A member of the RNA family "MIR397 microRNA precursor family" from Oryza punctata, 129 nucleotides long. Taxonomically the source falls in Oryza (Eukaryota, Viridiplantae, Magnoliopsida, Petrosaviidae).
[Rfam]
RNA sequence: CAAUAAUGCAUGAUUGAGUGCAGCGUUGAUAAACAACGGUAACCGGUCCAUGGCAUGAUCAGGCAGGCACAUUUGGCCGGUGAUUUGAUGAUCGAUUGAUCAUCUGCGCUUCACUCAAUCAUGCGUUUG
Numbered sequence: 001c002a003a004u005a006a007u008g009c010a011u012g013a014u015u016g017a018g019u020g021c022a023g024c025g026u027u028g029a030u031a032a033a034c035a036a037c038g039g040u041a042a043c044c045g046g047u048c049c050a051u052g053g054c055a056u057g058a059u060c061a062g063g064c065a066g067g068c069a070c071a072u073u074u075g076g077c078c079g080g081u082g083a084u085u086u087g088a089u090g091a092u093c094g095a096u097u098g099a100u101c102a103u104c105u106g107c108g109c110u111u112c113a114c115u116c117a118a119u120c121a122u123g124c125g126u127u128u129g
Base pairs, nucleotide, nucleotide: 006126007125008124009123010122011121013119014118015117016116017115018114019113020112022110023109024108025107026106028104030102032100